Cyp24a1 internal ribosome entry site (IRES): a 376-nucleotide sequence from Saimiri boliviensis. Rfam links the family to the GO term ribosome binding. About the family: Cyp24a1 (1,25-dihydroxyvitamin D3 24-hydroxylase) expression is translationally regulated via IRES within the 5'UTR, which is responsive to an inflammatory environment. The source organism's lineage runs through Eukaryota, Eutheria, Haplorrhini, Platyrrhini and Saimiri boliviensis. The base pairs follow the family's consensus structure, which was predicted with RNAfold. The family has 2 seed sequences and 24 matches in Rfam 15.1. A search with the family's covariance model found it, with a score of 248 bits.
[Rfam]
RNA sequence: GAGGGAACGCGGCGCCAGCAGCAUCUCACCUACCCUCCUUGACACCUCCUCCCCGCGGUUCCAGCGAGACCCUAGAAGUCAGACUUGCAGCUCAACAGGAGGACUCCCAGCUUUCCCUUUCCAAGAGGUCCCCAGUCCCCGGCCGCCCUCUUCCAGCCCCUACGGCCAGCGCCGGGAGGCACCAAGGCUCUGAGGCUGCCGCACGGUGCAGCGCCGAGCAUCCUCGCCGAGGCCCUUUCCGCCCGCUCCAUCACGCCAGCCGGCCCUCUUUGCCUCCCCUUCCCAGAAUCGUUAAGCCCCCAGAUCCCACCAGUCCCUCGUACCAACCUCGCCUCACCCCGUCCCCUCCCACGCCCCAGUGCCCCCCGCUGCCAUG
Number, nucleotide and partner (000 for none) at each position: 001g000002a000003g344004g343005g342006a000007a000008c000009g246010c245011g244012g243013c000014g242015c241016c000017a000018g000019c000020a000021g239022c000023a000024u000025c000026u000027c000028a000029c000030c000031u000032a000033c000034c179035c178036u177037c176038c175039u174040u000041g172042a000043c171044a000045c169046c000047u000048c000049c000050u000051c000052c000053c000054c000055g000056c000057g167058g166059u165060u164061c000062c000063a161064g160065c000066g000067a000068g000069a000070c000071c000072c000073u000074a151075g150076a149077a000078g147079u000080c000081a000082g143083a000084c141085u135086u134087g133088c000089a000090g130091c000092u128093c127094a000095a000096c000097a000098g120099g119100a118101g117102g116103a000104c000105u000106c000107c000108c000109a000110g000111c000112u000113u000114u000115c000116c102117c101118u100119u099120u098121c000122c000123a000124a000125g000126a000127g093128g092129u000130c090131c000132c000133c087134a086135g085136u000137c000138c000139c000140c000141g084142g000143c082144c000145g000146c000147c078148c000149u076150c075151u074152u000153c000154c000155a000156g000157c000158c000159c000160c064161u063162a000163c000164g060165g059166c058167c057168a000169g045170c000171g043172c041173c000174g039175g038176g037177a036178g035179g034180c000181a000182c000183c000184a000185a221186g000187g219188c218189u217190c216191u000192g215193a000194g000195g212196c211197u210198g209199c000200c208201g207202c206203a000204c000205g000206g202207u201208g200209c198210a197211g196212c195213g000214c000215c192216g190217a189218g188219c187220a000221u185222c232223c231224u230225c229226g000227c000228c000229g225230a224231g223232g222233c000234c000235c000236u000237u000238u000239c021240c000241g015242c014243c012244c011245g010246c009247u000248c000249c000250a000251u000252c000253a000254c000255g000256c000257c263258a000259g000260c000261c000262g000263g257264c000265c000266c000267u000268c000269u000270u000271u000272g000273c000274c000275u000276c000277c000278c000279c000280u000281u000282c000283c000284c000285a000286g306287a305288a000289u302290c000291g300292u000293u000294a000295a000296g000297c000298c000299c000300c291301c000302a289303g000304a000305u287306c286307c000308c000309a000310c000311c000312a000313g332314u331315c000316c000317c000318u000319c000320g000321u000322a000323c000324c000325a000326a000327c000328c000329u000330c000331g314332c313333c000334u000335c000336a000337c000338c000339c000340c000341g000342u005343c004344c003345c000346c000347u000348c000349c000350c000351a000352c000353g372354c371355c000356c000357c368358a000359g366360u000361g000362c000363c000364c000365c000366c359367c000368g357369c000370u000371g354372c353373c000374a000375u000376g000